[Rfam]
Shown here is a 282-nucleotide RNA sequence from Rhinopithecus roxellana, a member of the family "Mason-Pfizer monkey virus packaging signal". Pairs were carried over by alignment from the consensus structure, which was predicted with PFOLD. NCBI's taxonomy places the organism under Eukaryota, Mammalia, Eutheria, Colobinae, Rhinopithecus. A search with the family's covariance model found it, with a score of 164 bits. This family represents a group of sequences that are related to the Mason-Pfizer monkey virus (MPMV) packaging signal. The packaging signal is located in the 5' UTR and is required for specific RNA encapsidation.
RNA sequence: UGGCGCCUGAACAGGGACCUGGACACAGGGGGGGAAAAAGUGAGGAAGAAGGCACUAAAGUUGGCCAAAAGUGAAAGUGGAAGAAAUUCCUCCAGACGUCACGGGAACCUGCCGCGUUGGAACCAGAGUUACGUAAGUAACAAUGUCUGAUUAUGGGACAAGAAUUGAACCGACAUCAAAUUUAUGUAGGGCAAUUAAAAGAGGCCUUAAAAACACGAGCAGUAAAGGUUAAAAGUAAUGAUUUAUUUAAGUUUUUUGAUUUUGUAAAAGAAACCUGCCCUU
Numbered sequence: 001u002g003g004c005g006c007c008u009g010a011a012c013a014g015g016g017a018c019c020u021g022g023a024c025a026c027a028g029g030g031g032g033g034g035a036a037a038a039a040g041u042g043a044g045g046a047a048g049a050a051g052g053c054a055c056u057a058a059a060g061u062u063g064g065c066c067a068a069a070a071g072u073g074a075a076a077g078u079g080g081a082a083g084a085a086a087u088u089c090c091u092c093c094a095g096a097c098g099u100c101a102c103g104g105g106a107a108c109c110u111g112c113c114g115c116g117u118u119g120g121a122a123c124c125a126g127a128g129u130u131a132c133g134u135a136a137g138u139a140a141c142a143a144u145g146u147c148u149g150a151u152u153a154u155g156g157g158a159c160a161a162g163a164a165u166u167g168a169a170c171c172g173a174c175a176u177c178a179a180a181u182u183u184a185u186g187u188a189g190g191g192c193a194a195u196u197a198a199a200a201g202a203g204g205c206c207u208u209a210a211a212a213a214c215a216c217g218a219g220c221a222g223u224a225a226a227g228g229u230u231a232a233a234a235g236u237a238a239u240g241a242u243u244u245a246u247u248u249a250a251g252u253u254u255u256u257u258g259a260u261u262u263u264g265u266a267a268a269a270g271a272a273a274c275c276u277g278c279c280c281u282u
Base pairs, nucleotide, nucleotide: 006033007032008031015024041049087135089133090128091127095123097120100116102114103113104112144158146157147156148155149154166209167208168207170204171203216258217257218256219255221253222252223251226244227243228242229241230240231239267282268281270279